This 268-nucleotide RNA from Macaca mulatta belongs to the Rfam family "Mason-Pfizer monkey virus packaging signal". The base pairs follow the family's consensus structure, which was predicted with PFOLD. By type it is a cis-regulatory element. Lineage of the source: Eukaryota > Chordata > Cercopithecoidea > Cercopithecidae > Macaca. For this family Rfam cites "Mutational analysis of the predicted secondary RNA structure of the Mason-Pfizer monkey virus packaging signal" (Mustafa et al., Virus Res, 2004). About the family: This family represents a group of sequences that are related to the Mason-Pfizer monkey virus (MPMV) packaging signal. The packaging signal is located in the 5' UTR and is required for specific RNA encapsidation.
[Rfam]
RNA sequence: UGGCGCCCGAACAGGGACCUGGAAACGUGAGGAAGAGGACGCCAAAGGACGGUGGACCGCUAACAAAGACAAAAGGAAUUAAACUGAUCACCGCGGGAACCUGCCGCGUCUGAAUCGAAGGUAAGUGACGCGUCCGAAAUGGGACAAGAAUUAAGUCAACAUCAAAUAUAUGUAGGACAAUUAAAAGAGGCUUUAAAGAUACGAGGAGUAAAGGUUAAAGGUAAUGACUUGUUUAAAUUUUUUGAUUUUGUAAAAGAUACUUGCCCUU
Numbered sequence: 001u002g003g004c005g006c007c008c009g010a011a012c013a014g015g016g017a018c019c020u021g022g023a024a025a026c027g028u029g030a031g032g033a034a035g036a037g038g039a040c041g042c043c044a045a046a047g048g049a050c051g052g053u054g055g056a057c058c059g060c061u062a063a064c065a066a067a068g069a070c071a072a073a074a075g076g077a078a079u080u081a082a083a084c085u086g087a088u089c090a091c092c093g094c095g096g097g098a099a100c101c102u103g104c105c106g107c108g109u110c111u112g113a114a115u116c117g118a119a120g121g122u123a124a125g126u127g128a129c130g131c132g133u134c135c136g137a138a139a140u141g142g143g144a145c146a147a148g149a150a151u152u153a154a155g156u157c158a159a160c161a162u163c164a165a166a167u168a169u170a171u172g173u174a175g176g177a178c179a180a181u182u183a184a185a186a187g188a189g190g191c192u193u194u195a196a197a198g199a200u201a202c203g204a205g206g207a208g209u210a211a212a213g214g215u216u217a218a219a220g221g222u223a224a225u226g227a228c229u230u231g232u233u234u235a236a237a238u239u240u241u242u243u244g245a246u247u248u249u250g251u252a253a254a255a256g257a258u259a260c261u262u263g264c265c266c267u268u
Base pairs, nucleotide, nucleotide: 006022007021026038028036078122079121080120084117088114089112090111092108093107094106095105096104130145133143134142135141136140152195153194154193155191156190157189202244203243204242205241206240207239208238209237212230213229214228215227216226217225253268254267256265258263